[Rfam]
RNA sequence: ACCGGUGUCUUACCAGACAAAGUUAGAUCUAGCUAUUUCUGUCUAAUACUGUCUGGUAAUGCCGUCGAU
Dot-bracket structure: ..(((((.(((((((((((..((((((..............))))))..)))))))))).).)))))..
Numbered sequence: 001a002c003c004g005g006u007g008u009c010u011u012a013c014c015a016g017a018c019a020a021a022g023u024u025a026g027a028u029c030u031a032g033c034u035a036u037u038u039c040u041g042u043c044u045a046a047u048a049c050u051g052u053c054u055g056g057u058a059a060u061g062c063c064g065u066c067g068a069u
Stems, first nucleotide, its partner, number of pairs: 003067005009061001010059010022047006